[Rfam]
RNA: Murine norovirus 3'UTR
RNA sequence: ACAUCCCCUCUACCGAUCUCGGGUGGACGCUUGCCCUCCCUUCGUGGAGGUUCCUGGUCCCCGCGCGACCAUACGCCGGCGACUCAAGGCACCUACACGAACGGACGGUUCGUGUCUCUCCCUAAGAUCGGGAGUAGCAGGGCAUAGGUUGGAAGAGAAACCUUUUGUGAAAAUGAUUUCUGCUUACUGCUUUCUUUUCUUUGUGGUAGUUAGAUGCAUUUU
Numbered sequence: 001a002c003a004u005c006c007c008c009u010c011u012a013c014c015g016a017u018c019u020c021g022g023g024u025g026g027a028c029g030c031u032u033g034c035c036c037u038c039c040c041u042u043c044g045u046g047g048a049g050g051u052u053c054c055u056g057g058u059c060c061c062c063g064c065g066c067g068a069c070c071a072u073a074c075g076c077c078g079g080c081g082a083c084u085c086a087a088g089g090c091a092c093c094u095a096c097a098c099g100a101a102c103g104g105a106c107g108g109u110u111c112g113u114g115u116c117u118c119u120c121c122c123u124a125a126g127a128u129c130g131g132g133a134g135u136a137g138c139a140g141g142g143c144a145u146a147g148g149u150u151g152g153a154a155g156a157g158a159a160a161c162c163u164u165u166u167g168u169g170a171a172a173a174u175g176a177u178u179u180c181u182g183c184u185u186a187c188u189g190c191u192u193u194c195u196u197u198u199c200u201u202u203g204u205g206g207u208a209g210u211u212a213g214a215u216g217c218a219u220u221u222u
Stems, first nucleotide, its partner, number of pairs: 006142004010137003013131007021122003025117006033109003037105003041101006048094004053089003056084004061079003065076003146163005170222006179214004184209007